[Rfam]
RNA sequence: ACCCCCUACAAAGUUGUGCCUUUGGUUCCCUGUCUUUGUAUACAUAAAAAUUGGAGGCAAAGAAAUGUGGAUUUGGAGAAGUCUGGGGGGCAUUUCCCAUGGGCUCAAGAUCAAUCAUCCCACAUAG
Numbered sequence: 001a002c003c004c005c006c007u008a009c010a011a012a013g014u015u016g017u018g019c020c021u022u023u024g025g026u027u028c029c030c031u032g033u034c035u036u037u038g039u040a041u042a043c044a045u046a047a048a049a050a051u052u053g054g055a056g057g058c059a060a061a062g063a064a065a066u067g068u069g070g071a072u073u074u075g076g077a078g079a080a081g082u083c084u085g086g087g088g089g090g091c092a093u094u095u096c097c098c099a100u101g102g103g104c105u106c107a108a109g110a111u112c113a114a115u116c117a118u119c120c121c122a123c124a125u126a127g
Stems, first nucleotide, its partner, number of pairs: 002057002005054002015044004021038001024030002069120003073117001089105003092100002
RNA: Small nucleolar RNA SNORA38